[Rfam]
RNA sequence: GACGGGGCACAGAAGGUCCCAUGAAAAACGAGGUAUCCGCGAGGAUACAGUAGGAAUCAUGGGAAGCCGGUGUUCCGUCGUGCGUUUUGAAAAACGA
Numbered sequence: 001g002a003c004g005g006g007g008c009a010c011a012g013a014a015g016g017u018c019c020c021a022u023g024a025a026a027a028a029c030g031a032g033g034u035a036u037c038c039g040c041g042a043g044g045a046u047a048c049a050g051u052a053g054g055a056a057u058c059a060u061g062g063g064a065a066g067c068c069g070g071u072g073u074u075c076c077g078u079c080g081u082g083c084g085u086u087u088u089g090a091a092a093a094a095c096g097a
Stems, first nucleotide, its partner, number of pairs: 001079010015068002019062006029053001034047005083096003
A member of the RNA family "Archaeal large subunit ribosomal RNA" from Natranaeroarchaeum sulfidigenes, 97 nucleotides of a longer RNA.
Pairs were carried over by alignment from the consensus structure, which is taken from published work.
On this family, see Yusupov et al., Science 2001: "Crystal structure of the ribosome at 5.5 A resolution".
Clan: LSU clan.